Shown here is a 178-nucleotide RNA from Limnothrix sp. P13C2, a member of the family "Antisense RNA which regulates isiA expression".
NCBI's taxonomy places the organism under Bacteria, Bacillati, Cyanobacteriota, Cyanophyceae, Limnothrix.
On this family, see Duhring et al., Proc Natl Acad Sci U S A 2006: "An internal antisense RNA regulates expression of the photosynthesis gene isiA".

RNA sequence: AGUAGCCGAAGAUUUGCCCCAAAUCCCAGUUCAGGUCACUGACCAACUGGACGCGGCCCACCGCCGGAUCGUAAAGACCGCCAAAGGUGGUGGCCUUCAGCACCAGCAGCCAAGCGCCCAACCCGAGCAACACCAGGUGAAUGCCCAGAAUUUGGGUCAUUUUGUUGGCAUCAUCCCA
Numbered sequence: 001a002g003u004a005g006c007c008g009a010a011g012a013u014u015u016g017c018c019c020c021a022a023a024u025c026c027c028a029g030u031u032c033a034g035g036u037c038a039c040u041g042a043c044c045a046a047c048u049g050g051a052c053g054c055g056g057c058c059c060a061c062c063g064c065c066g067g068a069u070c071g072u073a074a075a076g077a078c079c080g081c082c083a084a085a086g087g088u089g090g091u092g093g094c095c096u097u098c099a100g101c102a103c104c105a106g107c108a109g110c111c112a113a114g115c116g117c118c119c120a121a122c123c124c125g126a127g128c129a130a131c132a133c134c135a136g137g138u139g140a141a142u143g144c145c146c147a148g149a150a151u152u153u154g155g156g157u158c159a160u161u162u163u164g165u166u167g168g169c170a171u172c173a174u175c176c177c178a
Stems, first nucleotide, its partner, number of pairs: 136175005145168004